[Rfam]
The family of this 87-nucleotide RNA sequence from Salibacterium salarium is "c-di-GMP-I riboswitch aptamer". About the family: GEMM was predicted in a large-scale screen for bacterial structured RNA regulatory elements.
RNA sequence: CUUCCGAACGGGCAAACUUAUCGAAAGGUAAGGACGCAAAAUUACGGGCCUACCGUCUUGCAGGACCAUGGCAGUCGUAUUACCGAA
Numbered sequence: 001c002u003u004c005c006g007a008a009c010g011g012g013c014a015a016a017c018u019u020a021u022c023g024a025a026a027g028g029u030a031a032g033g034a035c036g037c038a039a040a041a042u043u044a045c046g047g048g049c050c051u052a053c054c055g056u057c058u059u060g061c062a063g064g065a066c067c068a069u070g071g072c073a074g075u076c077g078u079a080u081u082a083c084c085g086a087a
Stems, first nucleotide, its partner, number of pairs: 012037002017032006040081003045077003048072003055066004
Annotation
A search with the family's covariance model found it, with a score of 74 bits.